Shown here is a 77-nucleotide RNA from Crocodylus porosus, a member of the family "Mammalian CPEB3 ribozyme". The base pairs follow the family's consensus structure, which is taken from published work. Taxonomically the source falls in Crocodylus (Eukaryota, Craniata, Dipnotetrapodomorpha, Crocodylia). The mammalian CPEB3 ribozyme is a self cleaving RNA located in the second intron of the CPEB3 gene which belongs to a family of genes regulating messenger RNA polyadenylation.

[Rfam]
RNA sequence: GGUUGAGAUUUUGAGGCCAUAUUAGAAGUGCUCAUAGUGCAGCUCUGUCAGAUGCCAACAAAUCUGUGAAUUCUGCU
Numbered sequence: 001g002g003u004u005g006a007g008a009u010u011u012u013g014a015g016g017c018c019a020u021a022u023u024a025g026a027a028g029u030g031c032u033c034a035u036a037g038u039g040c041a042g043c044u045c046u047g048u049c050a051g052a053u054g055c056c057a058a059c060a061a062a063u064c065u066g067u068g069a070a071u072u073c074u075g076c077u
Stems, first nucleotide, its partner, number of pairs: 013045002016043002021077001023075005028040003049066005